[Rfam]
RNA sequence: GCUCUGUGAUGGAGCCCAUGCGUGUCAUCUGAGCCUCUGGCUUCCCUGCCAGUGCAGCCCAGGCAGUGUCCUACUUCCCAGGGCUGUUUUCUGGCUUGGCGGGAACGUCCUGGGCAAAGGAUCAGUCUUUGUACUCUGAGAGC
Number, nucleotide and partner (000 for none) at each position: 001g143002c142003u141004c140005u000006g000007u000008g000009a000010u000011g000012g000013a000014g000015c000016c000017c000018a000019u000020g000021c000022g000023u000024g000025u000026c000027a000028u000029c000030u000031g000032a000033g000034c000035c000036u000037c000038u000039g000040g000041c000042u000043u000044c000045c103046c102047u101048g100049c099050c098051a097052g096053u000054g000055c000056a000057g000058c000059c000060c000061a000062g000063g000064c000065a000066g000067u000068g000069u000070c000071c000072u000073a000074c000075u000076u000077c000078c000079c000080a000081g000082g000083g000084c000085u000086g000087u000088u000089u000090u000091c000092u000093g000094g000095c000096u052097u051098g050099g049100c048101g047102g046103g045104a000105a000106c000107g000108u000109c000110c000111u000112g000113g000114g000115c000116a000117a000118a000119g000120g000121a000122u000123c000124a000125g000126u000127c000128u000129u000130u000131g000132u000133a000134c000135u000136c000137u000138g000139a000140g004141a003142g002143c001
Source information
This 143-nucleotide sequence from Macaca mulatta belongs to the Rfam family "Small nucleolar RNA SNORD10". The source organism's lineage runs through Eukaryota, Primates, Cercopithecoidea, Cercopithecinae and Macaca. Rfam classes the family as a C/D-box small nucleolar RNA. Gene Ontology terms of the family: RNA processing and nucleolus. The family's consensus secondary structure was predicted with WAR. Rfam 15.1 lists 433 matches to the family in 306 species. The literature on the family includes a 2001 paper in EMBO J by Huttenhofer et al., "RNomics: an experimental approach that identifies 201 candidates for novel, small, non-messenger RNAs in mouse".